[Rfam]
Shown here is an 87-nucleotide RNA from Tichodroma muraria, a member of the family "sroD RNA". From the family's description: This family consists of a number of bacterial sroD RNA genes of around 90 bases in length. sroD is found in several Enterobacterial species but its function is unknown. NCBI's taxonomy places the organism under Eukaryota, Sarcopterygii, Saurischia, Coelurosauria, Tichodroma. The family's consensus secondary structure was predicted with PFOLD.

RNA sequence: UUACGUGACGAAGCCCGUGCCAAAGUGGACAAUAAGGCCUGAGCUUCACGUUAAUCGCCCAGACGCCGGUUAAGCCGGCGUUUUUUA
Numbered sequence: 001u002u003a004c005g006u007g008a009c010g011a012a013g014c015c016c017g018u019g020c021c022a023a024a025g026u027g028g029a030c031a032a033u034a035a036g037g038c039c040u041g042a043g044c045u046u047c048a049c050g051u052u053a054a055u056c057g058c059c060c061a062g063a064c065g066c067c068g069g070u071u072a073a074g075c076c077g078g079c080g081u082u083u084u085u086u087a
Stems, first nucleotide, its partner, number of pairs: 016057002019039001021037001062082008